Rfam assigns this 197-nucleotide sequence from Streptomyces chattanoogensis to the family "c-di-AMP riboswitch aptamer (ydaO/yuaA leader)". About the family: This family represents a conserved RNA structure found upstream of the ydaO and yuaA genes in Bacillus subtilis and related genes in other bacteria. A search with the family's covariance model found it, with a score of 42 bits.
[Rfam]
RNA sequence: ACGGACGCCGAAUCCUGCCGCCGUCCCGGAUGUCAGGUCGACGCGGUUGGAUCGGCAGGAGCGGAGGACCCGAGCAUGACGGGGUCCCGGCCCUCGCGGCCGACGGACUCCUUGGGGUGAAGCCGUCCACACGGCCGGGCAUCUUCGCCUGCCCGAACCCGACAGGUCUCCCUUCGCAGGCGGCUGACGAAGGGUUG
Numbered sequence: 001a002c003g004g005a006c007g008c009c010g011a012a013u014c015c016u017g018c019c020g021c022c023g024u025c026c027c028g029g030a031u032g033u034c035a036g037g038u039c040g041a042c043g044c045g046g047u048u049g050g051a052u053c054g055g056c057a058g059g060a061g062c063g064g065a066g067g068a069c070c071c072g073a074g075c076a077u078g079a080c081g082g083g084g085u086c087c088c089g090g091c092c093c094u095c096g097c098g099g100c101c102g103a104c105g106g107a108c109u110c111c112u113u114g115g116g117g118u119g120a121a122g123c124c125g126u127c128c129a130c131a132c133g134g135c136c137g138g139g140c141a142u143c144u145u146c147g148c149c150u151g152c153c154c155g156a157a158c159c160c161g162a163c164a165g166g167u168c169u170c171c172c173u174u175c176g177c178a179g180g181c182g183g184c185u186g187a188c189g190a191a192g193g194g195u196u197g
Base pairs, nucleotide, nucleotide: 006182007181008180009179013060014059015058016057017056018055019054020053061177062176063175064174065173066172071114072113073112074111115160116159117158123134124133125132126131137154138153139152140151